[Rfam]
Group II catalytic intron D1-D4-7: a 148-nucleotide RNA from Candidatus Williamhamiltonella defendens. The literature on the family includes a 2001 paper in Trends Genet by Bonen and Vogel, "The ins and outs of group II introns". Group II introns are found in rRNA, tRNA and mRNA of organelles in fungi, plants and protists, and also in mRNA in bacteria. NCBI's taxonomy places the organism under Bacteria, Pseudomonadati, Enterobacterales, Enterobacteriaceae, Candidatus Williamhamiltonella defendens. The family has 244 seed sequences and 1,296 matches in Rfam 15.1.

RNA sequence: CGCACUGUUUCCCCAGUGCUAGCCUACUGAGCCAAGCGUUGCUGGUAACGGCGAGGUUUGAAGCGCUCAGGACAAUGAAACGCUUCGUAAGAGAAGGAAGAACCGCGAGGUGAAACCAACGACUGCCAGCAUCAAAGCGGUCAGCGAG
Numbered sequence: 001c002g003c004a005c006u007g008u009u010u011c012c013c014c015a016g017u018g019c020u021a022g023c024c025u026a027c028u029g030a031g032c033c034a035a036g037c038g039u040u041g042c043u044g045g046u047a048a049c050g051g052c053g054a055g056g057u058u059u060g061a062a063g064c065g066c067u068c069a070g071g072a073c074a075a076u077g078a079a080a081c082g083c084u085u086c087g088u089a090a091g092a093g094a095a096g097g098a099a100g101a102a103c104c105g106c107g108a109g110g111u112g113a114a115a116c117c118a119a120c121g122a123c124u125g126c127c128a129g130c131a132u133c134a135a136a137g138c139g140g141u142c143a144g145c146g147a148g
Stems, first nucleotide, its partner, number of pairs: 002019006028069005033060005039054006084095003096117002103110002122141005